[Rfam]
RNA sequence: AACGAUGCCCGGUUCUACCGCACGUCCCCACCGAGGAAGUGCCACCCGGAUUCCGCACACAAGUGCAGAAUCGCUCACGGUGACAUGAAAUCGGUGGAGAGCCGCUCACAUGGUAGAGCCAGAAAAUGAGUAACCUACUUCGUUAUCAAAGGGUGAGCGGCGGCGCGCUAGAGUUCCGGGGACGGAACGAGCGGGGACGGCCCCAAGGAGCAUU
Numbered sequence: 001a002a003c004g005a006u007g008c009c010c011g012g013u014u015c016u017a018c019c020g021c022a023c024g025u026c027c028c029c030a031c032c033g034a035g036g037a038a039g040u041g042c043c044a045c046c047c048g049g050a051u052u053c054c055g056c057a058c059a060c061a062a063g064u065g066c067a068g069a070a071u072c073g074c075u076c077a078c079g080g081u082g083a084c085a086u087g088a089a090a091u092c093g094g095u096g097g098a099g100a101g102c103c104g105c106u107c108a109c110a111u112g113g114u115a116g117a118g119c120c121a122g123a124a125a126a127u128g129a130g131u132a133a134c135c136u137a138c139u140u141c142g143u144u145a146u147c148a149a150a151g152g153g154u155g156a157g158c159g160g161c162g163g164c165g166c167g168c169u170a171g172a173g174u175u176c177c178g179g180g181g182a183c184g185g186a187a188c189g190a191g192c193g194g195g196g197a198c199g200g201c202c203c204c205a206a207g208g209a210g211c212a213u214u
Base pairs, nucleotide, nucleotide: 005213006212007211008210024198025197026196027195028097029096030095031094032093033092034091039086040085041084043082044081046080047079048078049072050071051070052069053068055066056065057064058063101161102160103159104158105157106156107155108154109153173188174187175186176185177184178183
Dot-bracket structure: ....((((...............(((((((((((....(((.((.((((((((.((((....)))).))))).....))))).)))....)))))))...(((((((((...........................................)))))))))...........((((((....))))))......))))...........)))).